A member of the RNA family "Eukaryotic large subunit ribosomal RNA" from Cryptomonas paramaecium, 402 nucleotides of a longer RNA.
Clan: LSU clan.
RNA sequence: GAGUUCAGUAUUCAUGCAAGUAUUCGAGUAUGUAAACUCUUGUGCGCAGUGAAAGCGAUUUUUCUUUCUUUUGGGUAAAACCAAGGGAGAGAGAAGGUGUAAAUUCUUUUCGGUUUAUAUCUGAAUUGAAACUCAUCACCCGAACGACAGUAUGUGCCUUUUUUUCUUUCUUUUUUAUUGUUUUUUAUUGUUAAAAGGCUAAGAAAAGAGAAAAAAAAAAAAAGACAACACGUUCAAUGGGAAGAGCAUGAAUACUGAGACCCGAAAGAUAGUGAACUAUGUCUGGGUAGGAUGAAGCCAGAGGAAACUCUGGUGGAAGUCCGAAGGCGUUCUGACGUGCAAAUCGAUGCUCAAACCUGGAUAUAGGGGCGAAAGACCAAUCGAACUAUCUAGUAGCUGGUU
Numbered sequence: 001g002a003g004u005u006c007a008g009u010a011u012u013c014a015u016g017c018a019a020g021u022a023u024u025c026g027a028g029u030a031u032g033u034a035a036a037c038u039c040u041u042g043u044g045c046g047c048a049g050u051g052a053a054a055g056c057g058a059u060u061u062u063u064c065u066u067u068c069u070u071u072u073g074g075g076u077a078a079a080a081c082c083a084a085g086g087g088a089g090a091g092a093g094a095a096g097g098u099g100u101a102a103a104u105u106c107u108u109u110u111c112g113g114u115u116u117a118u119a120u121c122u123g124a125a126u127u128g129a130a131a132c133u134c135a136u137c138a139c140c141c142g143a144a145c146g147a148c149a150g151u152a153u154g155u156g157c158c159u160u161u162u163u164u165u166c167u168u169u170c171u172u173u174u175u176u177a178u179u180g181u182u183u184u185u186u187a188u189u190g191u192u193a194a195a196a197g198g199c200u201a202a203g204a205a206a207a208g209a210g211a212a213a214a215a216a217a218a219a220a221a222a223a224g225a226c227a228a229c230a231c232g233u234u235c236a237a238u239g240g241g242a243a244g245a246g247c248a249u250g251a252a253u254a255c256u257g258a259g260a261c262c263c264g265a266a267a268g269a270u271a272g273u274g275a276a277c278u279a280u281g282u283c284u285g286g287g288u289a290g291g292a293u294g295a296a297g298c299c300a301g302a303g304g305a306a307a308c309u310c311u312g313g314u315g316g317a318a319g320u321c322c323g324a325a326g327g328c329g330u331u332c333u334g335a336c337g338u339g340c341a342a343a344u345c346g347a348u349g350c351u352c353a354a355a356c357c358u359g360g361a362u363a364u365a366g367g368g369g370c371g372a373a374a375g376a377c378c379a380a381u382c383g384a385a386c387u388a389u390c391u392a393g394u395a396g397c398u399g400g401u402u
Base pairs, nucleotide, nucleotide: 005258006257007256008255009254010253011252012251013250014249015248016247017246020045021044022043026039027038028037029036049056050055064091065090066089067088068087071083073081094238096235097234098232099231100230105225106224107223108222109221110220261400262399264397268390269389270388271387272386273385277366278365279364280363281362282361283360284359285358286357287356288354290322291321292320293319297314298313299312300311301310302309303308326351327350328349329348331347332346334345335344368378369377